[Rfam]
RNA sequence: CUCUGCGAAAUCUAUUUAGGUAGAGCGUUGUAUGUAUGUUAUUGGGGGUAGAGCACUGGAUAGACUAGGGGGUUUCACUGUCUUACCAAAUCUAACUAAACUCCGAAUACCAAUAAUAAUUGUAUAGCAGACACACUGUGGGUGCUAAAUCCAUAGUGAAAAGGGAAACAACCCAGAUCACCAUCUAAGGUCCCAAAAUUACAGCUAAGUGGGAAGGAAGUAGAAAAACCAUUACAGCUAGGAGGUUGGCUUGGAAGCAGCCAUCCUUUAAAGAAAGCGUAACAGCUCACUUGUCUAAAUAAGUUUUUCUGCGCUGAAAAUGUACCGGGGCUAAAGCUGUAUACCGAAGAUGUGAGUACUUAUUGAUUUUAGUUAAUAGGUGCGGUAGCGGAGCGUUCUGUAAGUCUGUGAAGGUGGUUUGUAAGAACUGCUGGAGAUAUCAGAAGUGAGAAU
Numbered sequence: 001c002u003c004u005g006c007g008a009a010a011u012c013u014a015u016u017u018a019g020g021u022a023g024a025g026c027g028u029u030g031u032a033u034g035u036a037u038g039u040u041a042u043u044g045g046g047g048g049u050a051g052a053g054c055a056c057u058g059g060a061u062a063g064a065c066u067a068g069g070g071g072g073u074u075u076c077a078c079u080g081u082c083u084u085a086c087c088a089a090a091u092c093u094a095a096c097u098a099a100a101c102u103c104c105g106a107a108u109a110c111c112a113a114u115a116a117u118a119a120u121u122g123u124a125u126a127g128c129a130g131a132c133a134c135a136c137u138g139u140g141g142g143u144g145c146u147a148a149a150u151c152c153a154u155a156g157u158g159a160a161a162a163g164g165g166a167a168a169c170a171a172c173c174c175a176g177a178u179c180a181c182c183a184u185c186u187a188a189g190g191u192c193c194c195a196a197a198a199u200u201a202c203a204g205c206u207a208a209g210u211g212g213g214a215a216g217g218a219a220g221u222a223g224a225a226a227a228a229c230c231a232u233u234a235c236a237g238c239u240a241g242g243a244g245g246u247u248g249g250c251u252u253g254g255a256a257g258c259a260g261c262c263a264u265c266c267u268u269u270a271a272a273g274a275a276a277g278c279g280u281a282a283c284a285g286c287u288c289a290c291u292u293g294u295c296u297a298a299a300u301a302a303g304u305u306u307u308u309c310u311g312c313g314c315u316g317a318a319a320a321u322g323u324a325c326c327g328g329g330g331c332u333a334a335a336g337c338u339g340u341a342u343a344c345c346g347a348a349g350a351u352g353u354g355a356g357u358a359c360u361u362a363u364u365g366a367u368u369u370u371a372g373u374u375a376a377u378a379g380g381u382g383c384g385g386u387a388g389c390g391g392a393g394c395g396u397u398c399u400g401u402a403a404g405u406c407u408g409u410g411a412a413g414g415u416g417g418u419u420u421g422u423a424a425g426a427a428c429u430g431c432u433g434g435a436g437a438u439a440u441c442a443g444a445a446g447u448g449a450g451a452a453u
Base pairs, nucleotide, nucleotide: 001393002392003391004390005389006388011024012023013022014021015020026130027128028127029126030125031124032123033122036121037118038117039116040115041114042113043112044111045110051104052102053101057098058097059096061094062093063092064091068087069086070084071083072082074080134158135157136156137155138154139153140152141151142150143149163174164173165172178355179354180353181352183351184350185349189345190344191343198342200341201340202339203338204337205336216315217314220312221311222310223309224308225307226306227305228304229303237294238293240291241290243267244266245265248262249261250260268272273288277286278285356383357382358381359380360379361378362377363376364375365374366373394448396445397444398443399442400441404438405437406436413432414431415430416429417428418427419426420425